[Rfam]
RNA sequence: UUAUAAGCAAAAAUCAACUUUUUAGGUUCAUUCAAUAAAUUAUGUAUUUAGUCUAUAUUAUUGACCAAAUACAUCAUUUAUUGAAUGAAUCUAAAAAGUUGACUUUUACUUAUAA
Numbered sequence: 001u002u003a004u005a006a007g008c009a010a011a012a013a014u015c016a017a018c019u020u021u022u023u024a025g026g027u028u029c030a031u032u033c034a035a036u037a038a039a040u041u042a043u044g045u046a047u048u049u050a051g052u053c054u055a056u057a058u059u060a061u062u063g064a065c066c067a068a069a070u071a072c073a074u075c076a077u078u079u080a081u082u083g084a085a086u087g088a089a090u091c092u093a094a095a096a097a098g099u100u101g102a103c104u105u106u107u108a109c110u111u112a113u114a115a
Stems, first nucleotide, its partner, number of pairs: 002114006009107004015101011027089014042074003049067001051065002

Overview
Shown here is a 115-nucleotide RNA sequence from Medicago truncatula, a member of the family "MIR2593 microRNA precursor family". The match comes from Rfam's covariance-model search (98 bits).